mir-4872 microRNA precursor family: a 76-nucleotide sequence from Branchiostoma floridae.
RNA sequence: UCUCAUGUGGUUUCGGGGUAGCUAAAACUCUGAGUUUUCUCAGCUUCAGAGUUUUGCUACCCCGGCUCUAUGUGGG
Numbered sequence: 001u002c003u004c005a006u007g008u009g010g011u012u013u014c015g016g017g018g019u020a021g022c023u024a025a026a027a028c029u030c031u032g033a034g035u036u037u038u039c040u041c042a043g044c045u046u047c048a049g050a051g052u053u054u055u056g057c058u059a060c061c062c063c064g065g066c067u068c069u070a071u072g073u074g075g076g
Stems, first nucleotide, its partner, number of pairs: 001076002004074004009069002013065005019059004024055010034044002